[Rfam]
RNA sequence: CAACCUUUAAAUGAAGUCCCGUGAGGCUUUCAAAGGCGAAUUGAGUGAUGAACCAGGUGAGAACUAAGAAUUUUCCUGGACAGAAGCUUGAAAACACCUUUGGGGACCUCCUCAAAGGUGUUUUUUUAU
Numbered sequence: 001c002a003a004c005c006u007u008u009a010a011a012u013g014a015a016g017u018c019c020c021g022u023g024a025g026g027c028u029u030u031c032a033a034a035g036g037c038g039a040a041u042u043g044a045g046u047g048a049u050g051a052a053c054c055a056g057g058u059g060a061g062a063a064c065u066a067a068g069a070a071u072u073u074u075c076c077u078g079g080a081c082a083g084a085a086g087c088u089u090g091a092a093a094a095c096a097c098c099u100u101u102g103g104g105g106a107c108c109u110c111c112u113c114a115a116a117g118g119u120g121u122u123u124u125u126u127u128a129u
Base pairs, nucleotide, nucleotide: 004036005035006034007033008032013030014029015028016027017026018025044088045087046086049083053079054078055077056076057075091124092123093122094121095120096119097118098117099116100115101114102113103112104111